[Rfam]
RNA sequence: CCUUGCUGUGUGUGAUGAAAGUAACGUUGGUAGGGACAUCUGAGAUUGCUGAUGAAUGCCAACGUCUCUGAUGCGGGG
Numbered sequence: 001c002c003u004u005g006c007u008g009u010g011u012g013u014g015a016u017g018a019a020a021g022u023a024a025c026g027u028u029g030g031u032a033g034g035g036a037c038a039u040c041u042g043a044g045a046u047u048g049c050u051g052a053u054g055a056a057u058g059c060c061a062a063c064g065u066c067u068c069u070g071a072u073g074c075g076g077g078g
Stems, first nucleotide, its partner, number of pairs: 001078005
Small nucleolar RNA SNORD74: a 78-nucleotide RNA from Monodelphis domestica.
On this family, see Galardi et al., Mol Cell Biol 2002: "Purified box C/D snoRNPs are able to reproduce site-specific 2'-O-methylation of target RNA in vitro".
Its Rfam clan is "SNORD74 clan".
Rfam 15.1 lists 929 matches to the family in 615 species.
It is one of the family's seed sequences.